The family of this 119-nucleotide RNA from Hibiscus trionum is "Small nucleolar RNA snoR104". A search with the family's covariance model found it, with a score of 99 bits. The source organism's lineage runs through Eukaryota, Streptophytina, Tracheophyta, rosids and Hibiscus.

RNA sequence: GGGGAGCAUCCAAGAGAUGAGAUGCUUCCUGAUACAAUCUUCCUACAGAAAAUUCUGAUGUUUCCUGUUUGUAGUACUUGAGCAAAGUUUCUGCAAGUCUUGUAGCUCCAGAGACAUGA
Numbered sequence: 001g002g003g004g005a006g007c008a009u010c011c012a013a014g015a016g017a018u019g020a021g022a023u024g025c026u027u028c029c030u031g032a033u034a035c036a037a038u039c040u041u042c043c044u045a046c047a048g049a050a051a052a053u054u055c056u057g058a059u060g061u062u063u064c065c066u067g068u069u070u071g072u073a074g075u076a077c078u079u080g081a082g083c084a085a086a087g088u089u090u091c092u093g094c095a096a097g098u099c100u101u102g103u104a105g106c107u108c109c110a111g112a113g114a115c116a117u118g119a
Base pairs, nucleotide, nucleotide: 001030002029003028005026006025007024008023009022010021054112055111056110067098068097069096070095071094072093073092074091076088077087078085